[Rfam]
RNA: Archaeal large subunit ribosomal RNA, nucleotides 2772 to 3033
RNA sequence: GGUUGCCUGAGGGGAAGGUGGUUCCAGUACGAGAGGAACGGACCGUCGGCGCCUCUGGUUUACCGGUUAUCCGAGUGGGUAUUGCCGGGCGGCUACGCGCUAUGAUUAUAAAGGCUGAAGGCAUCUAAGCCUGAGGUUUUCCCUGAAAAUAGGCGGCUUGUGGACCGCGGGUAGAAGACCUGUUUGUUGGGGCGGGGGUGUGAGCUUCGAGGCCUGUUUUUGGGUCGAGUUGUUUAGCCUGCCGUUUCCAAGGUUUUUUGUC
Numbered sequence: 001g002g003u004u005g006c007c008u009g010a011g012g013g014g015a016a017g018g019u020g021g022u023u024c025c026a027g028u029a030c031g032a033g034a035g036g037a038a039c040g041g042a043c044c045g046u047c048g049g050c051g052c053c054u055c056u057g058g059u060u061u062a063c064c065g066g067u068u069a070u071c072c073g074a075g076u077g078g079g080u081a082u083u084g085c086c087g088g089g090c091g092g093c094u095a096c097g098c099g100c101u102a103u104g105a106u107u108a109u110a111a112a113g114g115c116u117g118a119a120g121g122c123a124u125c126u127a128a129g130c131c132u133g134a135g136g137u138u139u140u141c142c143c144u145g146a147a148a149a150u151a152g153g154c155g156g157c158u159u160g161u162g163g164a165c166c167g168c169g170g171g172u173a174g175a176a177g178a179c180c181u182g183u184u185u186g187u188u189g190g191g192g193c194g195g196g197g198g199u200g201u202g203a204g205c206u207u208c209g210a211g212g213c214c215u216g217u218u219u220u221u222g223g224g225u226c227g228a229g230u231u232g233u234u235u236a237g238c239c240u241g242c243c244g245u246u247u248c249c250a251a252g253g254u255u256u257u258u259u260g261u262c
Base pairs, nucleotide, nucleotide: 001158002157003156004155005154006153007152008151011144012143013142014141017047018046019045020044021043022042023041024040048101049100050099051098052097056095057094058093063088064087065086066085067084068081069080070079071078072077105139112132113131114130115129116128163255164254165253166252167183168182169181170180171179188250189249190248191246192245193244194243195242196240197239198238204233205232208229211226212225213224214223215222